RpsF leader: an 84-nucleotide RNA from Photobacterium aquimaris.
RNA sequence: UCGGUUCUUUUUUUUAGUUCCUUGCUUCCCCAGGAUAACCGAGCCGACAAGGGAAGCUGAAUAAUCCGUAAGGAGCAACCUAUG
Number, nucleotide and partner (000 for none) at each position: 001u000002c000003g000004g000005u000006u000007c000008u000009u000010u000011u000012u000013u000014u000015u000016a000017g076018u075019u074020c073021c072022u071023u070024g057025c056026u055027u054028c053029c052030c000031c000032a000033g045034g044035a000036u000037a000038a000039c000040c000041g000042a000043g000044c034045c033046g000047a000048c000049a000050a000051g000052g029053g028054a027055a026056g025057c024058u000059g000060a000061a000062u000063a000064a000065u000066c000067c000068g000069u000070a023071a022072g021073g020074a019075g018076c017077a000078a000079c000080c000081u000082a000083u000084g000
The base pairs follow the family's consensus structure. It scores 43 bits against the family's covariance model. Rfam's curators write: Conserved and widely distributed to many bacterial species RNA structure. It precedes operon containing rpsF, which encodes ribosomal protein S6. The motif also precedes operon containing rpsR, which encodes ribosomal protein S18. The RNA was shown to interact with S6:S18 protein dimer in vitro. It was shown that RpsF leader regulates gene expression in response to the S6:S18 complex, contributing to the regulation of ribosomal protein levels.